The family of this 600-nucleotide part of an RNA from Halorubrum sp. Ib24 is "Archaeal large subunit ribosomal RNA". Rfam 15.1 lists 2,955 matches to the family in 1,139 species. The match comes from Rfam's covariance-model search (828 bits).
RNA sequence: AUGCUCCCUCCCAUAGCCCAUAGAGCUUACUGGCAGGCUGUCGCUGAGACGUGGUCGCCGAUUGCAGAUAGGUAGGGACAUUACACAGGUACCUGUGUUCUCUUUCAGCAGGUCAUCCGAGUCCAGCAUUGAAUACUAACCGGUCGGUGGACUGCGACUCUCACUUCCGGGAGAGUACACCCGGGUAGCCGCGGCAGUGACUUCGGGCGGCUACGCGCCCUCGAAAAGAUAUCGGAGCGCGCCCGAGAUCUCUCAGCCGGGUCGGGAAUCCGCGAGAGCGCCAAGGAGCACAAGAUGGUCUGACAGUGUCAAUUCCCAACGAGUGCGCUGACGGCGGAAGCUGGUCCGAACCCCUAACGAGGCCUCCCCGAAAGAAAAAAAGAUGGCGCGCCGCGCCCGUAAGAGUGACAAAAAGCUUACCUUACGAUAACAGGUCGUCACCGCAAGAGCACAUAUCGGACCUUGGGGUGGCUUGCGUACCUCGAUGUCGCGUUCCCUCCACCUGCCCGCUGCAGAACGGGCAAUUGGGGGUGAGGUUGUUUCGCCCAUAAAGGAGGUCGUGAGCUGGGUUUAGGACCGCGUGAGACAGGUCGGCCUGCU
Number, nucleotide and partner (000 for none) at each position: 001a000002u000003g599004c598005u000006c000007c000008c000009u000010c000011c000012c000013a000014u000015a000016g000017c000018c000019c000020a423021u000022a422023g421024a418025g417026c415027u414028u000029a198030c197031u196032g195033g000034c000035a000036g000037g189038c188039u187040g186041u185042c184043g181044c000045u000046g160047a159048g158049a000050c156051g155052u154053g153054g152055u151056c150057g000058c147059c146060g145061a144062u143063u142064g141065c000066a000067g000068a000069u000070a000071g140072g000073u138074a137075g136076g000077g123078a122079c121080a000081u000082u000083a000084c000085a000086c000087a000088g000089g000090u000091a000092c000093c000094u000095g000096u000097g000098u000099u112100c111101u110102c000103u108104u000105u000106c000107a000108g103109c000110a101111g100112g099113u000114c000115a000116u000117c000118c000119g000120a000121g079122u078123c077124c000125a000126g000127c000128a000129u000130u000131g000132a000133a000134u000135a000136c075137u074138a073139a000140c071141c064142g063143g062144u061145c060146g059147g058148u000149g000150g056151a055152c054153u053154g052155c051156g050157a000158c048159u047160c046161u000162c000163a000164c175165u174166u173167c000168c000169g000170g000171g000172a000173g166174a165175g164176u000177a000178c000179a000180c000181c043182c000183g000184g042185g041186u040187a039188g038189c037190c000191g000192c000193g000194g000195c032196a031197g030198u029199g214200a212201c000202u210203u209204c000205g000206g000207g000208c000209g203210g202211c000212u200213a000214c199215g240216c239217g238218c237219c000220c235221u000222c000223g000224a000225a000226a000227a000228g000229a000230u000231a000232u000233c000234g000235g220236a000237g218238c217239g216240c215241g000242c000243c344244c343245g000246a000247g000248a299249u298250c297251u295252c294253u277254c276255a000256g000257c000258c272259g271260g270261g269262u000263c000264g000265g000266g000267a000268a000269u261270c260271c259272g258273c000274g000275a000276g254277a253278g289279c288280g000281c000282c000283a000284a000285g000286g000287a000288g279289c278290a000291c000292a000293a000294g252295a251296u000297g250298g249299u248300c000301u000302g000303a000304c330305a329306g328307u327308g326309u325310c000311a000312a324313u323314u000315c000316c000317c000318a000319a000320c000321g000322a000323g313324u312325g309326c308327g307328c306329u305330g304331a000332c000333g000334g000335c340336g000337g000338a000339a000340g335341c000342u000343g244344g243345u000346c000347c000348g000349a000350a000351c000352c000353c403354c000355u401356a400357a000358c399359g000360a000361g397362g396363c395364c000365u000366c000367c000368c000369c000370g000371a000372a000373a000374g000375a000376a000377a000378a000379a000380a000381a000382g000383a000384u000385g000386g000387c000388g000389c000390g000391c000392c000393g000394c000395g363396c362397c361398c000399g358400u356401a355402a000403g353404a000405g000406u000407g000408a000409c000410a000411a000412a000413a000414a027415g026416c000417u025418u024419a000420c000421c023422u022423u020424a000425c000426g000427a000428u000429a000430a000431c000432a000433g000434g476435u475436c000437g474438u471439c470440a469441c468442c467443g462444c000445a000446a000447g457448a456449g000450c000451a000452c000453a000454u000455a000456u448457c447458g000459g000460a000461c000462c443463u000464u000465g000466g000467g442468g441469u440470g439471g438472c000473u000474u437475g435476c434477g000478u000479a000480c000481c000482u000483c000484g000485a000486u000487g000488u000489c568490g566491c000492g565493u564494u563495c560496c557497c556498u555499c554500c553501a000502c531503c530504u000505g000506c521507c520508c519509g518510c000511u000512g000513c000514a000515g000516a000517a000518c509519g508520g507521g506522c000523a000524a000525u000526u000527g000528g000529g000530g503531g502532u000533g000534a000535g546536g545537u544538u000539g000540u000541u000542u000543c000544g537545c536546c535547c000548a000549u000550a000551a000552a000553g500554g499555a498556g497557g496558u000559c000560g495561u000562g000563a494564g493565c492566u490567g000568g489569g000570u000571u000572u000573a000574g000575g592576a591577c590578c589579g587580c585581g000582u000583g000584a000585g580586a000587c579588a000589g578590g577591u576592c575593g000594g000595c000596c000597u000598g004599c003600u000